[Rfam]
RNA sequence: UGUCUCCUCCAAGUCUCUCCUGAGAUUGGAUUCAAGCCCGCCUUCAACCGCGGGCUUUUUUUU
Numbered sequence: 001u002g003u004c005u006c007c008u009c010c011a012a013g014u015c016u017c018u019c020c021u022g023a024g025a026u027u028g029g030a031u032u033c034a035a036g037c038c039c040g041c042c043u044u045c046a047a048c049c050g051c052g053g054g055c056u057u058u059u060u061u062u063u
Stems, first nucleotide, its partner, number of pairs: 008030004013026003035056007

Rfam assigns this 63-nucleotide sequence from Noviherbaspirillum cavernae to the family "Betaproteobacteria toxic small RNA". The family's consensus secondary structure was predicted with WAR. Overexpression in amino aid rich medium attenuates growth, suggesting role in repressing amino acid intake and metabolism. NCBI's taxonomy places the organism under Bacteria, Betaproteobacteria, Burkholderiales, Oxalobacteraceae, Noviherbaspirillum. The literature on the family includes a 2012 paper in Genome Res by Kimelman et al., "A vast collection of microbial genes that are toxic to bacteria". A search with the family's covariance model found it, with a score of 53 bits.